[Rfam]
RNA sequence: GGCAAUAAACGGACGAUGAAAUAAACCUAUUGGACCCGGGGGCGGUACCCGGCGCCUCCACCAGGAACCGGCGGACGAUCAUGCCCGAGGCCGGCUGCUGAUGGGGGCGAAAUAGGAUCGACAAGGGUGUAAAGAUCGCUCUUUUGCUCGGCAUUGUACCACCGUUAUCGGGCUAAAAUUGUAGUUGCAAACGACAACUAUGCUGAAGCUCGUCUCGCUGCUUAA
Number, nucleotide and partner (000 for none) at each position: 001g148002g147003c146004a145005a144006u000007a000008a000009a000010c000011g000012g000013a000014c138015g137016a136017u135018g000019a000020a000021a000022u000023a000024a000025a000026c127027c126028u125029a000030u124031u123032g122033g000034a000035c000036c052037c051038g050039g049040g048041g000042g000043c000044g000045g000046u000047a000048c040049c039050c038051g037052g036053c109054g108055c107056c106057u105058c104059c103060a000061c000062c000063a000064g000065g000066a000067a000068c000069c000070g000071g000072c000073g000074g000075a000076c000077g000078a000079u000080c000081a000082u000083g000084c000085c000086c000087g000088a000089g000090g000091c000092c000093g000094g000095c000096u000097g000098c000099u000100g000101a000102u000103g059104g058105g057106g056107g055108c054109g053110a000111a000112a000113u000114a000115g000116g000117a000118u000119c000120g000121a000122c032123a031124a030125g028126g027127g026128u000129g000130u000131a000132a000133a000134g000135a017136u016137c015138g014139c000140u000141c000142u000143u000144u005145u004146g003147c002148u001149c164150g163151g162152c000153a000154u000155u000156g000157u000158a000159c000160c000161a000162c151163c150164g149165u000166u000167a000168u000169c000170g000171g000172g000173c000174u000175a000176a000177a000178a000179u000180u000181g000182u000183a000184g000185u000186u000187g000188c000189a000190a000191a000192c000193g000194a000195c000196a000197a000198c000199u000200a000201u000202g000203c000204u000205g000206a000207a000208g000209c000210u000211c000212g000213u000214c000215u000216c000217g000218c000219u000220g000221c000222u000223u000224a000225a000